[Rfam]
The family of this 128-nucleotide sequence from Nannospalax galili is "Small nucleolar RNA SNORA61". Rfam describes the family as follows. ACA61 is a member of the H/ACA class of snoRNA that guide the sites of modification of uridines to pseudouridines. The source organism's lineage runs through Eukaryota, Theria, Euarchontoglires, Muroidea and Nannospalax. It scores 107 bits against the family's covariance model.
RNA sequence: ACUCACCUGUUCCCUUUCCCAUCAGAUCUCGACAUUGGCCUUGGUGGUCGUAAAGGAGGGAGAGCAUGCUGAAGCUGGCCUCAUAGCCUUGUAGUCUGGUAUAAGAUGUGGGCUAGAUUCAAACAGGG
Numbered sequence: 001a002c003u004c005a006c007c008u009g010u011u012c013c014c015u016u017u018c019c020c021a022u023c024a025g026a027u028c029u030c031g032a033c034a035u036u037g038g039c040c041u042u043g044g045u046g047g048u049c050g051u052a053a054a055g056g057a058g059g060g061a062g063a064g065c066a067u068g069c070u071g072a073a074g075c076u077g078g079c080c081u082c083a084u085a086g087c088c089u090u091g092u093a094g095u096c097u098g099g100u101a102u103a104a105g106a107u108g109u110g111g112g113c114u115a116g117a118u119u120c121a122a123a124c125a126g127g128g
Base pairs, nucleotide, nucleotide: 003059004058006056007055019047020046021045022044023043025040027038028037075116076115077114078113079112080111081110090106092104